[Rfam]
RNA sequence: CCUGGUGUUUCACCACCAGUACUCUACCAAGACCCGCGUCUGAAGCAAUUUUGAGGUGGGAAGCUCUUGGAACAAUGUAUCCUCCUGAAAAGCCGAUGGAACCGUGAGGGGAAAUCGGAACUGCGAGCAUCAAUGCGGUUGAGGGG
Numbered sequence: 001c002c003u004g005g006u007g008u009u010u011c012a013c014c015a016c017c018a019g020u021a022c023u024c025u026a027c028c029a030a031g032a033c034c035c036g037c038g039u040c041u042g043a044a045g046c047a048a049u050u051u052u053g054a055g056g057u058g059g060g061a062a063g064c065u066c067u068u069g070g071a072a073c074a075a076u077g078u079a080u081c082c083u084c085c086u087g088a089a090a091a092g093c094c095g096a097u098g099g100a101a102c103c104g105u106g107a108g109g110g111g112a113a114a115u116c117g118g119a120a121c122u123g124c125g126a127g128c129a130u131c132a133a134u135g136c137g138g139u140u141g142a143g144g145g146g
Stems, first nucleotide, its partner, number of pairs: 002019006028069005033060005039054002042051003085092002093118004102109002120139006
Dot-bracket structure: .((((((......))))))........((((((((((.((.(((....))).)).)))))....)))))...............((....))((((.....((....)).....)))).((((((........)))))).......

The record is a 146-nucleotide RNA sequence from Ktedonospora formicarum, which matches "Group II catalytic intron D1-D4-7" in Rfam. Lineage of the source: Bacteria > Bacillati > Ktedonobacteria > Ktedonobacterales > Ktedonospora. About the family: Group II introns are found in rRNA, tRNA and mRNA of organelles in fungi, plants and protists, and also in mRNA in bacteria. Its family is annotated with Group II intron splicing in the Gene Ontology.